[Rfam]
Nucleotides: 112
Stems, first nucleotide, its partner, number of pairs: 006100005011064004016058001017042005049057003068093004074087004
Number, partner (000 for none) and nucleotide at each position: 001000c002000g003000c004000g005000u006100c007099u008098u009097g010096a011064c012063g013062g014061g015000g016058u017042g018041c019040u020039g021038g022000c023000g024000g025000c026000c027000a028000g029000a030000a031000a032000c033000g034000g035000c036000a037000g038021c039020c040019g041018g042017c043000u044000g045000a046000g047000a048000u049057u050056g051055c052000a053000c054000a055051g056050c057049a058016g059000a060000a061014c062013c063012c064011g065000c066000a067000a068093c069092c070091u071090g072000a073000u074087c075086c076085g077084g078000a079000u080000a081000a082000u083000a084077c085076c086075g087074g088000c089000g090071u091070a092069g093068g094000g095000a096010u097009u098008a099007a100006g101000a102000c103000c104000a105000g106000a107000u108000g109000a110000a111000u112000a
The record is a 112-nucleotide RNA from Marinobacter persicus, which matches "TPP riboswitch aptamer (THI element)" in Rfam. The organism belongs to Marinobacter, within Bacteria.